[Rfam]
RNA sequence: CCUGGGGCUGACGCCACCAGGCUACGUGAUACCGUCGCUUCGCGACU
Numbered sequence: 001c002c003u004g005g006g007g008c009u010g011a012c013g014c015c016a017c018c019a020g021g022c023u024a025c026g027u028g029a030u031a032c033c034g035u036c037g038c039u040u041c042g043c044g045a046c047u
Base pairs, nucleotide, nucleotide: 001021002020003019004018005017006015007014008013034046035045036044037043038042

The record is a 47-nucleotide RNA sequence from Kolteria novifilia, which matches "Acido-Lenti-1 RNA" in Rfam. The base pairs follow the family's consensus structure, which is taken from published work.